[Rfam]
RNA sequence: GCGCCCUGCUGGUGAUCGUCUUCUCACCGUUCACACGGCGGGCGGAAGGGGAAGGCCCCCGCGAGAGCGACUCGCGGGGGCCUUUC
Numbered sequence: 001g002c003g004c005c006c007u008g009c010u011g012g013u014g015a016u017c018g019u020c021u022u023c024u025c026a027c028c029g030u031u032c033a034c035a036c037g038g039c040g041g042g043c044g045g046a047a048g049g050g051g052a053a054g055g056c057c058c059c060c061g062c063g064a065g066a067g068c069g070a071c072u073c074g075c076g077g078g079g080g081c082c083u084u085u086c
Base pairs, nucleotide, nucleotide: 002044003043005042006041007040008039009038010037011036012034013033014032015031018028050086051085052084053083054082055081056080057079058078059077060076061075062074063073064072065071

The family of this 86-nucleotide RNA from Streptomyces sulfonofaciens is "sodF sRNA". Its family is annotated with regulation of mRNA stability, negative regulation of translation and mRNA binding in the Gene Ontology. The family has 6 seed sequences and 336 matches in Rfam 15.1. The match comes from Rfam's covariance-model search (73 bits). Pairs were carried over by alignment from the consensus structure.